RNA: Small nucleolar RNA snoR14
RNA sequence: GCGAGGUGAUGAUAGCAAUUCAUUUGUCUGUCAAUCCGCUGAUUUCGUGUGAUGUACUAAUGAAUCCCGACAGGUUCUGAUCGC
Dot-bracket structure: ((((............................................................................))))